[Rfam]
A member of the RNA family "miR-430 microRNA precursor family" from Echeneis naucrates, 71 nucleotides long. Rfam links the family to the GO terms RISC complex and miRNA-mediated post-transcriptional gene silencing.
Nucleotides: 071
Stems, first nucleotide, its partner, number of pairs: 004067003008063004013058005018052005025045003
Number, partner (000 for none) and nucleotide at each position: 001000a002000a003000c004067a005066u006065u007000u008063c009062c010061c011060c012000a013058a014057c015056u016055g017054a018052a019051g020050c021049a022048c023000a024000g025045a026044c027043u028000u029000g030000a031000c032000a033000g034000a035000c036000u037000g038000a039000g040000a041000g042000c043027a044026g045025u046000a047000a048022g049021u050020g051019c052018u053000a054017u055016u056015a057014g058013u059000u060011g061010g062009g063008g064000u065006a066005a067004u068000g069000u070000u071000g
The base pairs follow the family's consensus structure, which was predicted with RNAalifold.